[Rfam]
Nucleotides: 104
Base pairs, nucleotide, nucleotide: 002096003095004094005093009088010087011086012084013083019077020076021075022074023073025071028070029069030068031067032066033065034064035063036062040057042056
Number, partner (000 for none) and nucleotide at each position: 001000a002096g003095g004094a005093g006000g007000a008000a009088c010087a011086g012084c013083c014000a015000c016000a017000g018000u019077g020076g021075u022074g023073g024000u025071g026000g027000c028070a029069g030068c031067u032066c033065u034064g035063g036062a037000g038000c039000c040057c041000u042056g043000g044000a045000g046000u047000c048000a049000g050000c051000c052000c053000c054000c055000g056042c057040g058000u059000a060000a061000c062036u063035c064034c065033g066032g067031g068030g069029c070028u071025c072000u073023c074022c075021g076020u077019c078000u079000g080000c081000a082000g083013g084012g085000u086011c087010u088009g089000g090000g091000g092000g093005c094004u095003c096002c097000g098000g099000g100000g101000c102000g103000g104000g